[Rfam]
RNA: Small nucleolar RNA psi28S-1192
RNA sequence: AUUAUGUCUGUUCUAAUACCAUAGAACUGUAUAUUAGUUCUAUGGCUUCGCUUUCAGACAAAAUUAAAUUCUUCAAAUUUAUCCUGGUGUGAGAUUGUAAUCAAUGAACUUUGCACCGGCAUUUUGAGGAUACAAAA
Numbered sequence: 001a002u003u004a005u006g007u008c009u010g011u012u013c014u015a016a017u018a019c020c021a022u023a024g025a026a027c028u029g030u031a032u033a034u035u036a037g038u039u040c041u042a043u044g045g046c047u048u049c050g051c052u053u054u055c056a057g058a059c060a061a062a063a064u065u066a067a068a069u070u071c072u073u074c075a076a077a078u079u080u081a082u083c084c085u086g087g088u089g090u091g092a093g094a095u096u097g098u099a100a101u102c103a104a105u106g107a108a109c110u111u112u113g114c115a116c117c118g119g120c121a122u123u124u125u126g127a128g129g130a131u132a133c134a135a136a137a
Stems, first nucleotide, its partner, number of pairs: 005060006019045008028036002070130007084119006